[Rfam]
RNA sequence: AGGUCGGCAGACCACCUAGGCGUCACCGCCCCGUAAGGGGAGCUAAACCUGCCA
Numbered sequence: 001a002g003g004u005c006g007g008c009a010g011a012c013c014a015c016c017u018a019g020g021c022g023u024c025a026c027c028g029c030c031c032c033g034u035a036a037g038g039g040g041a042g043c044u045a046a047a048c049c050u051g052c053c054a
Stems, first nucleotide, its partner, number of pairs: 001017004029040004

Description
A member of the RNA family "COG3860 RNA" from Rhizobium sp. RU36D, 54 nucleotides long. The family's consensus secondary structure is taken from published work. The organism belongs to Rhizobium, within Bacteria.